[Rfam]
RNA sequence: AUGCCCAAUGGUAAAAGUAUAUUAAUUUCACCAUAAUUACCAUAAAUAAUAAUCAAAAAGGAAUUAUGAUAUAAU
Numbered sequence: 001a002u003g004c005c006c007a008a009u010g011g012u013a014a015a016a017g018u019a020u021a022u023u024a025a026u027u028u029c030a031c032c033a034u035a036a037u038u039a040c041c042a043u044a045a046a047u048a049a050u051a052a053u054c055a056a057a058a059a060g061g062a063a064u065u066a067u068g069a070u071a072u073a074a075u
Base pairs, nucleotide, nucleotide: 030070032068033067034066035065036064037063